[Rfam]
RNA sequence: AGGUGAGAGUAGUUUCUCUCGGUCAUCAUCACACGAUGAUCCUGUGGGGUGCAAAUCCCCCCCUUAACUUGAGGGAAAUCAAGCCC
Numbered sequence: 001a002g003g004u005g006a007g008a009g010u011a012g013u014u015u016c017u018c019u020c021g022g023u024c025a026u027c028a029u030c031a032c033a034c035g036a037u038g039a040u041c042c043u044g045u046g047g048g049g050u051g052c053a054a055a056u057c058c059c060c061c062c063c064u065u066a067a068c069u070u071g072a073g074g075g076a077a078a079u080c081a082a083g084c085c086c
Stems, first nucleotide, its partner, number of pairs: 004077001005020005012052001021041007046060004061075003068083005
Shown here is an 86-nucleotide RNA from Pomovirus solibetae, a member of the family "Tymovirus/Pomovirus/Furovirus tRNA-like 3' UTR element".
About the family: This family represents a tRNA-like structure found in the 3' UTR of Tymoviruses, Pomoviruses and Furovirus.
The base pairs follow the family's consensus structure, which is taken from published work.
It scores 57 bits against the family's covariance model.